Background: A member of the RNA family "ASpks TB sRNA" from Phytohabitans suffuscus, 75 nucleotides long. Pairs were carried over by alignment from the consensus structure, which is taken from published work. On this family, see Arnvig and Young, Mol Microbiol 2009: "Identification of small RNAs in Mycobacterium tuberculosis".

[Rfam]
RNA sequence: CUUGACCGAGCCGAGCCACAGCGGCCGCCGCGCCGGCCGGUCCUGGCCGUAGGUGCCCAGCAGCGCCUGCGCCUC
Numbered sequence: 001c002u003u004g005a006c007c008g009a010g011c012c013g014a015g016c017c018a019c020a021g022c023g024g025c026c027g028c029c030g031c032g033c034c035g036g037c038c039g040g041u042c043c044u045g046g047c048c049g050u051a052g053g054u055g056c057c058c059a060g061c062a063g064c065g066c067c068u069g070c071g072c073c074u075c
Stems, first nucleotide, its partner, number of pairs: 015025003031071003038065002043060003048055002